This 459-nucleotide sequence from Halorientalis sp. IM1011 belongs to the Rfam family "Archaeal RNase P".
Clan: RNaseP clan.
It scores 128 bits against the family's covariance model.
Ribonuclease P (RNase P) is a ubiquitous endoribonuclease, found in archaea, bacteria and eukarya as well as chloroplasts and mitochondria. Its best characterised activity is the generation of mature 5'-ends of tRNAs by cleaving the 5'-leader elements of precursor-tRNAs. Cellular RNase Ps are ribonucleoproteins. RNA from bacterial RNase Ps retains its catalytic activity in the absence of the protein subunit, i.e. it is a ribozyme.
For this family Rfam cites "The Ribonuclease P Database" (Brown, Nucleic Acids Res, 1999).
Rfam links the family to the GO terms tRNA processing, ribonuclease P activity and multimeric ribonuclease P complex.
Lineage of the source: Archaea > Methanobacteriota > Halobacteriales > Haloarculaceae > Halorientalis.
RNA sequence: GGCAGAGGGAGUCCGACCACCGUGCCCCAGUCCGUGCCCGCAGGGCACGCAAGGGGCAUGAGGAAAGUCCCCCCACCGUCCGGGCAGGUGACCGGGCGCAAGCCCGGAGCGGGAGACCGCUGGCUCUGGAACAGAAACGAGACCCCUCCGCGCGAGCGAUGAGGCCUGCGAAUCCCGACCGUAAGGGAGGGAGAGUUAACCGGCCGAGCGUGUGGCUGCGAAGCAGCCACAUACUGUGCGAACGGCGCAGCCGUGAGCCGGGCGGCGACGCAGUCGCCGCCGAACGCGUGCGCGGGCCUCGCCCACGCACGCUGACCGCGGAGAACGGAUGGAACGGCGAACCCUCACCGGUGCAAGCCCGCGCCGUCAGGUAGCCCGGACACCGCCGGAUUCGGCGACCUGGCGCGGGCGCGCAGCCGAAUGUCGGACCGAACAGAAGGGGGCUUACUCCCCUCAGCC
Number, nucleotide and partner (000 for none) at each position: 001g459002g458003c457004a000005g455006a454007g453008g452009g451010a449011g448012u428013c427014c426015g425016a424017c423018c000019a000020c000021c060022g059023u058024g057025c056026c055027c054028c053029a000030g000031u000032c000033c000034g000035u000036g000037c000038c000039c000040g000041c000042a000043g000044g000045g000046c000047a000048c000049g000050c000051a000052a000053g028054g027055g026056g025057c024058a023059u022060g021061a000062g000063g000064a000065a446066a445067g444068u000069c443070c442071c441072c440073c439074c353075a352076c351077c350078g000079u000080c000081c000082g000083g000084g000085c000086a000087g349088g348089u347090g346091a345092c107093c106094g105095g104096g103097c000098g000099c000100a000101a000102g000103c096104c095105c094106g093107g092108a121109g120110c119111g118112g117113g000114a000115g000116a000117c112118c111119g110120c109121u108122g344123g343124c000125u000126c000127u340128g000129g338130a000131a000132c000133a000134g000135a000136a000137a000138c000139g000140a000141g000142a000143c328144c327145c000146c323147u322148c321149c320150g319151c318152g317153c000154g000155a000156g000157c000158g000159a000160u000161g000162a000163g000164g000165c000166c000167u000168g000169c000170g000171a000172a000173u000174c000175c000176c000177g000178a000179c000180c000181g000182u000183a000184a000185g000186g000187g000188a000189g000190g000191g000192a000193g000194a000195g000196u000197u000198a000199a000200c000201c000202g000203g000204c000205c000206g000207a000208g000209c000210g000211u000212g000213u000214g000215g000216c000217u000218g000219c000220g000221a000222a000223g000224c000225a000226g000227c000228c000229a000230c000231a000232u000233a000234c000235u000236g000237u000238g000239c000240g000241a000242a000243c000244g000245g000246c000247g000248c000249a000250g000251c000252c000253g000254u000255g000256a000257g000258c000259c000260g000261g000262g000263c000264g000265g000266c000267g000268a000269c000270g000271c000272a000273g000274u000275c000276g000277c000278c000279g000280c000281c000282g000283a000284a000285c000286g000287c000288g000289u000290g000291c000292g000293c000294g000295g000296g000297c000298c000299u000300c000301g000302c000303c000304c000305a000306c000307g000308c000309a000310c000311g000312c000313u000314g000315a000316c000317c152318g151319c150320g149321g148322a147323g146324a000325a000326c000327g144328g143329a000330u000331g000332g000333a000334a000335c000336g000337g000338c129339g000340a127341a000342c000343c123344c122345u091346c090347a089348c088349c087350g077351g076352u075353g074354c000355a000356a000357g410358c409359c408360c407361g406362c405363g404364c403365c402366g000367u000368c000369a000370g000371g000372u000373a000374g000375c000376c000377c000378g000379g000380a000381c000382a000383c000384c000385g000386c000387c000388g000389g000390a000391u000392u000393c000394g000395g000396c000397g000398a000399c000400c000401u000402g365403g364404c363405g362406c361407g360408g359409g358410c357411g000412c000413g000414c000415a000416g000417c000418c000419g000420a000421a000422u000423g017424u016425c015426g014427g013428a012429c000430c000431g000432a000433a000434c000435a000436g000437a000438a000439g073440g072441g071442g070443g069444c067445u066446u065447a000448c011449u010450c000451c009452c008453c007454u006455c005456a000457g003458c002459c001